[Rfam]
RNA sequence: GCAUGGACGAAUUCUGUAUUACUCCGAAAAUAGUAAAUGCAGUCAGACACCAUGCGAAAUUAUUGUUUCACACCGACUCAAAAUAAGGAUAAGUGCUUACCACAUGCCUUAUUCUUAUGCUGGAGUGAACACAGCU
Numbered sequence: 001g002c003a004u005g006g007a008c009g010a011a012u013u014c015u016g017u018a019u020u021a022c023u024c025c026g027a028a029a030a031u032a033g034u035a036a037a038u039g040c041a042g043u044c045a046g047a048c049a050c051c052a053u054g055c056g057a058a059a060u061u062a063u064u065g066u067u068u069c070a071c072a073c074c075g076a077c078u079c080a081a082a083a084u085a086a087g088g089a090u091a092a093g094u095g096c097u098u099a100c101c102a103c104a105u106g107c108c109u110u111a112u113u114c115u116u117a118u119g120c121u122g123g124a125g126u127g128a129a130c131a132c133a134g135c136u
Stems, first nucleotide, its partner, number of pairs: 001055006014042006067129003071125001073123003077119001084117010

The family of this 136-nucleotide sequence from Sphaeramia orbicularis is "Small nucleolar RNA SNORA15". Rfam 15.1 lists 974 matches to the family in 624 species. About the family: ACA15 is a member of the H/ACA class of snoRNA that guide the sites of modification of uridines to pseudouridines. Rfam links the family to the GO terms nucleolus and RNA processing. It is annotated as an H/ACA-box small nucleolar RNA. Lineage of the source: Eukaryota > Bilateria > Osteoglossocephalai > Gobiaria > Sphaeramia.